Rfam assigns this 96-nucleotide RNA from Tatumella ptyseos to the family "sraA". The literature on the family includes a 2003 paper in Nucleic Acids Res by Hershberg et al., "A survey of small RNA-encoding genes in Escherichia coli". The family's consensus secondary structure was predicted with RNAalifold. It scores 69 bits against the family's covariance model. Taxonomically the source falls in Tatumella ptyseos (Bacteria, Pseudomonadota, Gammaproteobacteria, Tatumella).
RNA sequence: AGAUAAUUGAGUAUAUGGGGAUGUUGACACGACAUUCAAUGUCAUAAAUGCGAGAAAAAUGAAAGGGGAAGCAAUUUUCCCCUUUCAUUGGUUACC
Numbered sequence: 001a002g003a004u005a006a007u008u009g010a011g012u013a014u015a016u017g018g019g020g021a022u023g024u025u026g027a028c029a030c031g032a033c034a035u036u037c038a039a040u041g042u043c044a045u046a047a048a049u050g051c052g053a054g055a056a057a058a059a060u061g062a063a064a065g066g067g068g069a070a071g072c073a074a075u076u077u078u079c080c081c082c083u084u085u086c087a088u089u090g091g092u093u094a095c096c
Stems, first nucleotide, its partner, number of pairs: 008038001010036003016032001018030001020028001061086011